[Rfam]
RNA sequence: GAUUCAUGAUGACACAGGACCUUGUUUGAAAAUAAUGAUAUUAAACUUUGAGCUUAAACCACACUCUGAAAUC
Number, nucleotide and partner (000 for none) at each position: 001g073002a072003u071004u070005c000006a000007u000008g000009a000010u000011g000012a000013c000014a000015c000016a000017g000018g000019a000020c000021c000022u000023u000024g000025u000026u000027u000028g000029a000030a000031a000032a000033u000034a000035a000036u000037g000038a000039u000040a000041u000042u000043a000044a000045a000046c000047u000048u000049u000050g000051a000052g000053c000054u000055u000056a000057a000058a000059c000060c000061a000062c000063a000064c000065u000066c000067u000068g000069a000070a004071a003072u002073c001

Background:
Shown here is a 73-nucleotide RNA sequence from Dasypus novemcinctus, a member of the family "Small nucleolar RNA SNORD107". On this family, see Runte et al., Hum Mol Genet 2001: "The IC-SNURF-SNRPN transcript serves as a host for multiple small nucleolar RNA species and as an antisense RNA for UBE3A". Taxonomically the source falls in Dasypus (Eukaryota, Metazoa, Eumetazoa, Gnathostomata). It is annotated as a C/D-box small nucleolar RNA. Rfam links the family to the GO terms nucleolus and RNA processing.